Source information:
The family of this 220-nucleotide sequence from Streptomyces poonensis is "Actinobacteria sRNA Ms_IGR-5". For this family Rfam cites "Identification of small RNAs in Mycobacterium smegmatis using heterologous Hfq" (Li et al., RNA, 2013). Taxonomically the source falls in Streptomyces (Bacteria, Actinomycetota, Actinomycetes, Streptomycetaceae). A search with the family's covariance model found it, with a score of 77 bits.
[Rfam]
RNA sequence: ACACAGAAGGGAGGUGAUCGGGUAAAUGAGUGAAACCCGGACGCGUGAGGUGGCUGCGGGCUAGCGGCCCGUCACCACACCGAGUGCGGUGCCGGACCAGCGCGUGAGACAGGCGCGCAGCCGGCCCAAUCCCAAGCAGUCACCCGACCCGCAGGCUCGCCGGUACGUCCGGCCGGCUCCGCGCCGUGAGGCGCGGACCAGGGCCUGCGGGUCGUCUGUG
Numbered sequence: 001a002c003a004c005a006g007a008a009g010g011g012a013g014g015u016g017a018u019c020g021g022g023u024a025a026a027u028g029a030g031u032g033a034a035a036c037c038c039g040g041a042c043g044c045g046u047g048a049g050g051u052g053g054c055u056g057c058g059g060g061c062u063a064g065c066g067g068c069c070c071g072u073c074a075c076c077a078c079a080c081c082g083a084g085u086g087c088g089g090u091g092c093c094g095g096a097c098c099a100g101c102g103c104g105u106g107a108g109a110c111a112g113g114c115g116c117g118c119a120g121c122c123g124g125c126c127c128a129a130u131c132c133c134a135a136g137c138a139g140u141c142a143c144c145c146g147a148c149c150c151g152c153a154g155g156c157u158c159g160c161c162g163g164u165a166c167g168u169c170c171g172g173c174c175g176g177c178u179c180c181g182c183g184c185c186g187u188g189a190g191g192c193g194c195g196g197a198c199c200a201g202g203g204c205c206u207g208c209g210g211g212u213c214g215u216c217u218g219u220g
Stems, first nucleotide, its partner, number of pairs: 014057003018053001059126004064121002067118002070115001072113001145214013159177006